[Rfam]
RNA sequence: UUCUUUAUGCUUUUGAUUGUUGCUCAGAAAGCCUUGUUUACUAAUACUGGCUUUCGGGCGAUAAUCAUAAUCAGGGAAGAG
Numbered sequence: 001u002u003c004u005u006u007a008u009g010c011u012u013u014u015g016a017u018u019g020u021u022g023c024u025c026a027g028a029a030a031g032c033c034u035u036g037u038u039u040a041c042u043a044a045u046a047c048u049g050g051c052u053u054u055c056g057g058g059c060g061a062u063a064a065u066c067a068u069a070a071u072c073a074g075g076g077a078a079g080a081g
Stems, first nucleotide, its partner, number of pairs: 001081006011070002014067004019062007027055007